Small nucleolar RNA snoR27: an 89-nucleotide RNA from Elaeis guineensis. Lineage of the source: Eukaryota > Viridiplantae > Streptophytina > Liliopsida > Elaeis. It is annotated as a C/D-box small nucleolar RNA. The match comes from Rfam's covariance-model search (43 bits). The family's consensus secondary structure was predicted with WAR. Gene Ontology terms of the family: nucleolus and RNA processing. The literature on the family includes a 2001 paper in RNA by Brown et al., "Multiple snoRNA gene clusters from Arabidopsis".

[Rfam]
RNA sequence: UCUGGAUUAAUUGUGUGAUUUAAUCUGUACUAUCUUUCUAUAAUUCCUUUGACGGAAUUGAAGAUGUCACUGAUCCACUGAGAUCUGGU
Numbered sequence: 001u002c003u004g005g006a007u008u009a010a011u012u013g014u015g016u017g018a019u020u021u022a023a024u025c026u027g028u029a030c031u032a033u034c035u036u037u038c039u040a041u042a043a044u045u046c047c048u049u050u051g052a053c054g055g056a057a058u059u060g061a062a063g064a065u066g067u068c069a070c071u072g073a074u075c076c077a078c079u080g081a082g083a084u085c086u087g088g089u
Stems, first nucleotide, its partner, number of pairs: 002088006
Dot-bracket structure: .((((((...........................................................................)))))).